Source information
c-di-GMP-II-GCG riboswitch aptamer: an 86-nucleotide RNA. Rfam links the family to the GO terms regulation of gene expression and cyclic-di-GMP binding. The family is grouped with related families in Rfam's "c-di-GMP_II riboswitch clan". The base pairs follow the family's consensus structure, which is taken from published work.

[Rfam]
RNA sequence: UGCAGUUCGGGAAGCUUUGAUGCGUGACCCCAACAUCGGUCGCCUGUAGGUCACGCGGAGCAGUGGCGAGCCCGGUCCCGGCCGUG
Numbered sequence: 001u002g003c004a005g006u007u008c009g010g011g012a013a014g015c016u017u018u019g020a021u022g023c024g025u026g027a028c029c030c031c032a033a034c035a036u037c038g039g040u041c042g043c044c045u046g047u048a049g050g051u052c053a054c055g056c057g058g059a060g061c062a063g064u065g066g067c068g069a070g071c072c073c074g075g076u077c078c079c080g081g082c083c084g085u086g
Base pairs, nucleotide, nucleotide: 001086002085003084005082006081007080009078010077011076014061015060022056023055024054025053026052027051028050029049038073039072040069041068042067043066044065